RNA sequence: GUUAAAUCUAUAACACUUCAGGGCCUUAAUAAAGACCCGUCGUACAAUUUUUGGACGCCCUUUCCUUCACAGGACUGGGUG
Numbered sequence: 001g002u003u004a005a006a007u008c009u010a011u012a013a014c015a016c017u018u019c020a021g022g023g024c025c026u027u028a029a030u031a032a033a034g035a036c037c038c039g040u041c042g043u044a045c046a047a048u049u050u051u052u053g054g055a056c057g058c059c060c061u062u063u064c065c066u067u068c069a070c071a072g073g074a075c076u077g078g079g080u081g
Base pairs, nucleotide, nucleotide: 021038022037023036025034026033027032057080058079059078060077063074064073065072
RNA: SmY spliceosomal RNA